[Rfam]
RNA sequence: UGCCUUCAAAGAUGAGCCAUAUUAUCAUAUUCAGUUAUCCCUGUCUGAAUAUUCCUUGUUGACUACAUUGAACUCUGAGAGGCCU
Number, nucleotide and partner (000 for none) at each position: 001u000002g084003c000004c082005u081006u080007c079008a000009a000010a000011g000012a000013u000014g000015a000016g000017c000018c000019a000020u000021a000022u000023u000024a000025u000026c000027a000028u000029a000030u000031u000032c000033a000034g000035u000036u000037a000038u000039c000040c000041c000042u000043g000044u000045c000046u000047g000048a000049a000050u000051a000052u000053u000054c000055c000056u000057u000058g000059u000060u000061g000062a000063c000064u000065a000066c000067a000068u000069u000070g000071a000072a000073c000074u000075c000076u000077g000078a000079g007080a006081g005082g004083c000084c002085u000
This 85-nucleotide RNA from Fonsecaea pedrosoi belongs to the Rfam family "Small nucleolar RNA R38". The base pairs follow the family's consensus structure, which was predicted with PFOLD. Rfam describes the family as follows. snoR38 is a C/D box small nucleolar RNA conserved across yeast, human, Arabidopsis and rice. It is encoded in the intron of elongation factor-1 gamma in both pombe and cerevisiae. snoR38 guides the methylation of 2'-O-ribose sites in 28S rRNA. It scores 49 bits against the family's covariance model. Lineage of the source: Eukaryota > Fungi > saccharomyceta > Chaetothyriales > Fonsecaea pedrosoi.